[Rfam]
RNA: Z30 small nucleolar RNA
Organism: Kryptolebias marmoratus
RNA sequence: CUGCAGUGAUGAGCCUCUGAAGGACUGAUCUGGUAUUGCUUCCCUCUGGGGACAGCUCUGACCAGGGAGUGAUCUCACUUUAAUCUUCUCUCUGAGCAG
Numbered sequence: 001c002u003g004c005a006g007u008g009a010u011g012a013g014c015c016u017c018u019g020a021a022g023g024a025c026u027g028a029u030c031u032g033g034u035a036u037u038g039c040u041u042c043c044c045u046c047u048g049g050g051g052a053c054a055g056c057u058c059u060g061a062c063c064a065g066g067g068a069g070u071g072a073u074c075u076c077a078c079u080u081u082a083a084u085c086u087u088c089u090c091u092c093u094g095a096g097c098a099g
Base pairs, nucleotide, nucleotide: 003097004096038056039055040054